[Rfam]
RNA sequence: AAGAGUCGGGUUUGUGGUUGAAAGUCGAUGCCAGUCGCAGGCGAAACGAUCCACGUAAGUUAAAUAAAAUGUUUAAUGAGCAUGGUGCGGCUUAGAAGUAAGUCCUACCGUAUUAUAAUGCGAGAGGGUUAGUAGUGAGAGGGUAAUUCUGGGUAGCAAAAGCUCCAGUAGGCGAGUGUGGGGUCAAAGACCAGGUCAAACGACAUAA
Numbered sequence: 001a002a003g004a005g006u007c008g009g010g011u012u013u014g015u016g017g018u019u020g021a022a023a024g025u026c027g028a029u030g031c032c033a034g035u036c037g038c039a040g041g042c043g044a045a046a047c048g049a050u051c052c053a054c055g056u057a058a059g060u061u062a063a064a065u066a067a068a069a070u071g072u073u074u075a076a077u078g079a080g081c082a083u084g085g086u087g088c089g090g091c092u093u094a095g096a097a098g099u100a101a102g103u104c105c106u107a108c109c110g111u112a113u114u115a116u117a118a119u120g121c122g123a124g125a126g127g128g129u130u131a132g133u134a135g136u137g138a139g140a141g142g143g144u145a146a147u148u149c150u151g152g153g154u155a156g157c158a159a160a161a162g163c164u165c166c167a168g169u170a171g172g173c174g175a176g177u178g179u180g181g182g183g184u185c186a187a188a189g190a191c192c193a194g195g196u197c198a199a200a201c202g203a204c205a206u207a208a
Base pairs, nucleotide, nucleotide: 003206005204006203007202008201012199013198014197015193016192017191018190019189028179029178030177031041033092034091035090036089037088038087039086050085051084058077060075062073063072083186104172105171106170107169108168109122110121111120112119113118126165127164128163129162135157136156141150142149143148
Annotation:
raiA RNA: a 208-nucleotide RNA from Clostridium sulfidigenes. Pairs were carried over by alignment from the consensus structure, which is taken from published work. The match comes from Rfam's covariance-model search (192 bits).